[Rfam]
RNA sequence: AUAUAAGAAGAAAUUCACUUUUUAGAUACAUUGGGAAAUUAAUGUAUCUAGACUAUAUAGUCUAGAUACAUUAAUUUCCCAAUGUAUCUAAAAAGUGAAUUUCUUCUUAUAU
Numbered sequence: 001a002u003a004u005a006a007g008a009a010g011a012a013a014u015u016c017a018c019u020u021u022u023u024a025g026a027u028a029c030a031u032u033g034g035g036a037a038a039u040u041a042a043u044g045u046a047u048c049u050a051g052a053c054u055a056u057a058u059a060g061u062c063u064a065g066a067u068a069c070a071u072u073a074a075u076u077u078c079c080c081a082a083u084g085u086a087u088c089u090a091a092a093a094a095g096u097g098a099a100u101u102u103c104u105u106c107u108u109a110u111a112u
Stems, first nucleotide, its partner, number of pairs: 002111006009104005015098011027086018049064004